[Rfam]
RNA sequence: GGUGGGAACGCACGACCGCAAAUCUGACUCGUCGCCCGCUUGGGCGGCUCGGGAUUGCGGUGGUGU
Numbered sequence: 001g002g003u004g005g006g007a008a009c010g011c012a013c014g015a016c017c018g019c020a021a022a023u024c025u026g027a028c029u030c031g032u033c034g035c036c037c038g039c040u041u042g043g044g045c046g047g048c049u050c051g052g053g054a055u056u057g058c059g060g061u062g063g064u065g066u
Stems, first nucleotide, its partner, number of pairs: 010066004015061007024053002031048007
RNA: S15-Halobacteria ribosomal protein leader